[Rfam]
RNA sequence: UGAGCCGGCUGGGUGACCGCGGCGGGGUUGCUCCCGUCGAGGAAAGUCCGGACUCCACAGGGCAGGGUGGUUGCUAACGGCAACCCGGGGCGACCCGCGGGACAGUGCCACAGAGAGCAGACCGCCCGGCGGACACCCGCCGGGUAAGGGUGAAAGGGUGGUGUAAGAGACCACCAGCACCUCGGGUGACCGGGGUGGCUCGGUAAACCCCACCCGGAGCAAGGCCAAGAGGACGCCGACCAGGCGUCUGCGCGGACGUUCGAGGGCGGCCCGUCCGAGUCCGCGGGUAGGCUGCACGAGCCGGCCGGCGACGGUCGGCCUAGAUGGAUGGUCACCGAAUGGGACCGCCGCAAGGCGCCCAGGAACAGAAUCCGGCUUACAGGCCGACUCAUCCG
Numbered sequence: 001u002g003a004g005c006c007g008g009c010u011g012g013g014u015g016a017c018c019g020c021g022g023c024g025g026g027g028u029u030g031c032u033c034c035c036g037u038c039g040a041g042g043a044a045a046g047u048c049c050g051g052a053c054u055c056c057a058c059a060g061g062g063c064a065g066g067g068u069g070g071u072u073g074c075u076a077a078c079g080g081c082a083a084c085c086c087g088g089g090g091c092g093a094c095c096c097g098c099g100g101g102a103c104a105g106u107g108c109c110a111c112a113g114a115g116a117g118c119a120g121a122c123c124g125c126c127c128g129g130c131g132g133a134c135a136c137c138c139g140c141c142g143g144g145u146a147a148g149g150g151u152g153a154a155a156g157g158g159u160g161g162u163g164u165a166a167g168a169g170a171c172c173a174c175c176a177g178c179a180c181c182u183c184g185g186g187u188g189a190c191c192g193g194g195g196u197g198g199c200u201c202g203g204u205a206a207a208c209c210c211c212a213c214c215c216g217g218a219g220c221a222a223g224g225c226c227a228a229g230a231g232g233a234c235g236c237c238g239a240c241c242a243g244g245c246g247u248c249u250g251c252g253c254g255g256a257c258g259u260u261c262g263a264g265g266g267c268g269g270c271c272c273g274u275c276c277g278a279g280u281c282c283g284c285g286g287g288u289a290g291g292c293u294g295c296a297c298g299a300g301c302c303g304g305c306c307g308g309c310g311a312c313g314g315u316c317g318g319c320c321u322a323g324a325u326g327g328a329u330g331g332u333c334a335c336c337g338a339a340u341g342g343g344a345c346c347g348c349c350g351c352a353a354g355g356c357g358c359c360c361a362g363g364a365a366c367a368g369a370a371u372c373c374g375g376c377u378u379a380c381a382g383g384c385c386g387a388c389u390c391a392u393c394c395g
Stems, first nucleotide, its partner, number of pairs: 001391004006386005011380001012336007020039008044378003048375005053219004060272004065215005070084005085099001086097004100210002105208002107204003122149002124145009157175006177199001178197008223293004252284006264276004300319008
This 395-nucleotide RNA from Saccharopolyspora hordei belongs to the Rfam family "Bacterial RNase P class A". Its family is annotated with dimeric ribonuclease P complex, tRNA processing and ribonuclease P activity in the Gene Ontology. On this family, see Brown, Nucleic Acids Res 1999: "The Ribonuclease P Database". Rfam classes the family as a ribozyme.